[Rfam]
RNA sequence: CCUUGCAAAUAUAUAAUGUUUUGCUUUUGGUCUUUGAUGUUUGGUUUUAGUCCUUGCAAAAUAUGUUUAUGUUAAAAUUAUUCCUUGUAAUAUUUAUUUUAGUCCUUAUUUUAAAAGAACAAAAUCAAAUAUUUUACGUAUUGCAAGAACCAAUUCCAAUAUGAAUCAAUUUUAUAAGGACUAAAAUAAAAUUGCAAGAACCAAAAGCAAAACAUUAUAUAUUUACAAGGA
Numbered sequence: 001c002c003u004u005g006c007a008a009a010u011a012u013a014u015a016a017u018g019u020u021u022u023g024c025u026u027u028u029g030g031u032c033u034u035u036g037a038u039g040u041u042u043g044g045u046u047u048u049a050g051u052c053c054u055u056g057c058a059a060a061a062u063a064u065g066u067u068u069a070u071g072u073u074a075a076a077a078u079u080a081u082u083c084c085u086u087g088u089a090a091u092a093u094u095u096a097u098u099u100u101a102g103u104c105c106u107u108a109u110u111u112u113a114a115a116a117g118a119a120c121a122a123a124a125u126c127a128a129a130u131a132u133u134u135u136a137c138g139u140a141u142u143g144c145a146a147g148a149a150c151c152a153a154u155u156c157c158a159a160u161a162u163g164a165a166u167c168a169a170u171u172u173u174a175u176a177a178g179g180a181c182u183a184a185a186a187u188a189a190a191a192u193u194g195c196a197a198g199a200a201c202c203a204a205a206a207g208c209a210a211a212a213c214a215u216u217a218u219a220u221a222u223u224u225a226c227a228a229g230g231a
Stems, first nucleotide, its partner, number of pairs: 007224007015216002018213003023208009033198003039192004044187006051180002054177003058173005066165002069162005078153002082149001084147001088143006108125005
The family of this 231-nucleotide RNA sequence from Trifolium subterraneum is "MIR2630 microRNA precursor family".
Rfam links the family to the GO terms RISC complex and miRNA-mediated post-transcriptional gene silencing.